U7 small nuclear RNA: a 55-nucleotide RNA sequence from Hucho hucho. Lineage of the source: Eukaryota > Opisthokonta > Chordata > Vertebrata > Hucho. Rfam describes the family as follows. Animal histone pre-mRNAs are spliced by a different mechanism than nuclear pre-mRNAs and self-splicing introns. This processing involves the U7 snRNP, which contains only one RNA species: U7. The 5' end of U7 RNA is thought to base-pair to a conserved spacer element downstream of the cleavage site in histone pre-mRNA. This family contains a number of annotated U7 pseudogenes. Pairs were carried over by alignment from the consensus structure, which was predicted with PFOLD. The match comes from Rfam's covariance-model search (44 bits).
RNA sequence: GAAUAUUUGCUCUUUUAGUUUUUGUCAAGUAGGUUUCCUCAAGGAGAAAGCCCUC
Numbered sequence: 001g002a003a004u005a006u007u008u009g010c011u012c013u014u015u016u017a018g019u020u021u022u023u024g025u026c027a028a029g030u031a032g033g034u035u036u037c038c039u040c041a042a043g044g045a046g047a048a049a050g051c052c053c054u055c
Base pairs, nucleotide, nucleotide: 032052033051034050035049036048038046039045040044